[Rfam]
RNA sequence: GGGUCAUUACCCAGGUUUGUAGGUUGCAGUCUCUCCUUUGCUGUGCAUAUGACCAUACAAAAUUUCCCACUAGGUUUUCUAUCUGCUGACUUCCUAACAAUCAGCCUAUUGGGGACAAUU
Numbered sequence: 001g002g003g004u005c006a007u008u009a010c011c012c013a014g015g016u017u018u019g020u021a022g023g024u025u026g027c028a029g030u031c032u033c034u035c036c037u038u039u040g041c042u043g044u045g046c047a048u049a050u051g052a053c054c055a056u057a058c059a060a061a062a063u064u065u066c067c068c069a070c071u072a073g074g075u076u077u078u079c080u081a082u083c084u085g086c087u088g089a090c091u092u093c094c095u096a097a098c099a100a101u102c103a104g105c106c107u108a109u110u111g112g113g114g115a116c117a118a119u120u
Base pairs, nucleotide, nucleotide: 003053004052005051006050007049011045026041027040028039029038066113067112068111069110073106074105075104076103084099085098

The record is a 120-nucleotide sequence from Spermophilus dauricus, which matches "Small nucleolar RNA SNORA32" in Rfam.
Gene Ontology terms of the family: RNA processing and nucleolus.
Rfam's curators write: ACA32 is a member of the H/ACA class of snoRNA that guide the sites of modification of uridines to pseudouridines.